[Rfam]
Rfam assigns this 123-nucleotide RNA from Gossypium aridum to the family "MIR7504 microRNA precursor family".
RNA sequence: AAUAGUUUUAUGUCACAUCAAUAUUUUUAUCUUGAAUUUCAUCAUUUUCAUCCUAAGAAAAAUCAAAUCCAAAUUAAAAUCCUUAAAUUUAGGAUGAAAUUGCUGAUGUGGUAUAAAACUAUU
Numbered sequence: 001a002a003u004a005g006u007u008u009u010a011u012g013u014c015a016c017a018u019c020a021a022u023a024u025u026u027u028u029a030u031c032u033u034g035a036a037u038u039u040c041a042u043c044a045u046u047u048u049c050a051u052c053c054u055a056a057g058a059a060a061a062a063u064c065a066a067a068u069c070c071a072a073a074u075u076a077a078a079a080u081c082c083u084u085a086a087a088u089u090u091a092g093g094a095u096g097a098a099a100u101u102g103c104u105g106a107u108g109u110g111g112u113a114u115a116a117a118a119c120u121a122u123u
Stems, first nucleotide, its partner, number of pairs: 001123020022102001023100002026098002029095011041083001045079004

Its family is annotated with miRNA-mediated post-transcriptional gene silencing and RISC complex in the Gene Ontology. Taxonomically the source falls in Gossypium (Eukaryota, Viridiplantae, Embryophyta, Gunneridae).